Record summary:
Shown here is a 107-nucleotide RNA sequence from Vulpes vulpes, a member of the family "mir-8834 microRNA precursor family". Pairs were carried over by alignment from the consensus structure, which was predicted with RNAalifold. Rfam links the family to the GO terms RISC complex and miRNA-mediated post-transcriptional gene silencing. Taxonomically the source falls in Vulpes (Eukaryota, Gnathostomata, Tetrapoda, Eutheria).
RNA sequence: AGGAGGAACAACAACAGUGGCGGAGGCCAGCUCUGGAGCCCUGGAAUCAGCUCCUGCAGUAACAACGGAGCUCUCAGUCUCCAGGGGCCUGUAUGCCCUGGGGGUGG
Numbered sequence: 001a002g003g004a005g006g007a008a009c010a011a012c013a014a015c016a017g018u019g020g021c022g023g024a025g026g027c028c029a030g031c032u033c034u035g036g037a038g039c040c041c042u043g044g045a046a047u048c049a050g051c052u053c054c055u056g057c058a059g060u061a062a063c064a065a066c067g068g069a070g071c072u073c074u075c076a077g078u079c080u081c082c083a084g085g086g087g088c089c090u091g092u093a094u095g096c097c098c099u100g101g102g103g104g105u106g107g
Stems, first nucleotide, its partner, number of pairs: 002099002005096001007094001009091002012087001019079003023075003029072007041059003